[Rfam]
RNA: Ribosomal protein L19 leader
RNA sequence: ACGAUGUUCCGCUGUAGUUAAUAAGCUUUCAAGAGCAUCUG
Numbered sequence: 001a002c003g004a005u006g007u008u009c010c011g012c013u014g015u016a017g018u019u020a021a022u023a024a025g026c027u028u029u030c031a032a033g034a035g036c037a038u039c040u041g
Stems, first nucleotide, its partner, number of pairs: 003039007013031002016028002